[Rfam]
Background:
GP20-b RNA: a 62-nucleotide RNA from Lawsonibacter hominis. A search with the family's covariance model found it, with a score of 37 bits. Pairs were carried over by alignment from the consensus structure, which is taken from published work.
RNA sequence: UGCCCAGGCCCGGGCGUAAUGAGGGCCGCCGCAGGGGACGCCACCCCCGUUAUCAAAGCGUA
Dot-bracket structure: ((((...[[[[.))))......]]]].......((((.......))))..............